[Rfam]
RNA sequence: AGAGUAUCGAAGAUGAGUACAGUGAAAAUGUUAUCCUUGCACUUUGAUUGUCAGUGAAGAAAACUCACGGGGAAUAUUCCAUAUUCUGAGAUCUGCUU
Numbered sequence: 001a002g003a004g005u006a007u008c009g010a011a012g013a014u015g016a017g018u019a020c021a022g023u024g025a026a027a028a029u030g031u032u033a034u035c036c037u038u039g040c041a042c043u044u045u046g047a048u049u050g051u052c053a054g055u056g057a058a059g060a061a062a063a064c065u066c067a068c069g070g071g072g073a074a075u076a077u078u079c080c081a082u083a084u085u086c087u088g089a090g091a092u093c094u095g096c097u098u
Stems, first nucleotide, its partner, number of pairs: 002098004006092003
Dot-bracket structure: .(((((((.................................................................................)))..))))

Notes
Rfam assigns this 98-nucleotide RNA to the family "Small nucleolar RNA snoR26". The family has 8 seed sequences and 611 matches in Rfam 15.1. For this family Rfam cites "Multiple snoRNA gene clusters from Arabidopsis" (Brown et al., RNA, 2001). By type it is a C/D-box small nucleolar RNA.